A member of the RNA family "Small nucleolar RNA R12", 85 nucleotides long. Gene Ontology terms of the family: nucleolus and RNA processing. A reference for the family is Chen et al. (2003), "The high diversity of snoRNAs in plants: identification and comparative study of 120 snoRNA genes from Oryza sativa", Nucleic Acids Res. Rfam classes the family as a C/D-box small nucleolar RNA. snoR12 is a C/D box small nucleolar RNA, which acts as a methylation guide for 25S ribosomal RNA in plants. snoR12 has been alternatively named snoZ44 in Arabidopsis and snoZ131 in rice.
[Rfam]
RNA sequence: GUGAGGAUGACGAAAAAAUCAUUCGGAUUCCCUUUGAAUUCCUCCGGGAAACAUGUGAUUAUAUAAUCAGCUACUUCUGACUCAU
Numbered sequence: 001g002u003g004a005g006g007a008u009g010a011c012g013a014a015a016a017a018a019u020c021a022u023u024c025g026g027a028u029u030c031c032c033u034u035u036g037a038a039u040u041c042c043u044c045c046g047g048g049a050a051a052c053a054u055g056u057g058a059u060u061a062u063a064u065a066a067u068c069a070g071c072u073a074c075u076u077c078u079g080a081c082u083c084a085u
Stems, first nucleotide, its partner, number of pairs: 001085005